[Rfam]
RNA sequence: GUGUCGCCAAGAGCGGCGCCCGUGCCCUGUGACGGGCCGGGAAGACGGGGGUGGUGCCGUGUCGGCGCAGCACCACCCCCGUCGU
Numbered sequence: 001g002u003g004u005c006g007c008c009a010a011g012a013g014c015g016g017c018g019c020c021c022g023u024g025c026c027c028u029g030u031g032a033c034g035g036g037c038c039g040g041g042a043a044g045a046c047g048g049g050g051g052u053g054g055u056g057c058c059g060u061g062u063c064g065g066c067g068c069a070g071c072a073c074c075a076c077c078c079c080c081g082u083c084g085u
Base pairs, nucleotide, nucleotide: 001019002018003017004016005015006014007013021041023039024038025036026035027034045082046081047080048079049078050077051076052075053074054073055072056071057070059068060067061066

This 85-nucleotide RNA from Streptomyces fumanus belongs to the Rfam family "Streptomyces RNA 6106".
Pairs were carried over by alignment from the consensus structure.
On this family, see Vockenhuber et al., RNA Biol 2011: "Deep sequencing-based identification of small non-coding RNAs in Streptomyces coelicolor".
Taxonomically the source falls in Streptomyces (Bacteria, Bacillati, Kitasatosporales, Streptomycetaceae).
It scores 64 bits against the family's covariance model.